[Rfam]
RNA: mir-544 microRNA precursor family
RNA sequence: CUCAUCUAGGGGUCUUGUUAAAAUGCAGAUUCUGAUUAAGUAGAUUUGAGUCCAAGUGAGCCCUAAGUUUCUGCAUUUCUGACAAGAUCCCAGCUGAUGCUGU
Dot-bracket structure: ..((....(((..((((((((((.(((((..((................................))..))))).))).))))))).)))....)).......
Numbered sequence: 001c002u003c004a005u006c007u008a009g010g011g012g013u014c015u016u017g018u019u020a021a022a023a024u025g026c027a028g029a030u031u032c033u034g035a036u037u038a039a040g041u042a043g044a045u046u047u048g049a050g051u052c053c054a055a056g057u058g059a060g061c062c063c064u065a066a067g068u069u070u071c072u073g074c075a076u077u078u079c080u081g082a083c084a085a086g087a088u089c090c091c092a093g094c095u096g097a098u099g100c101u102g103u
Stems, first nucleotide, its partner, number of pairs: 003096002009090003014086007021078003025074005032067002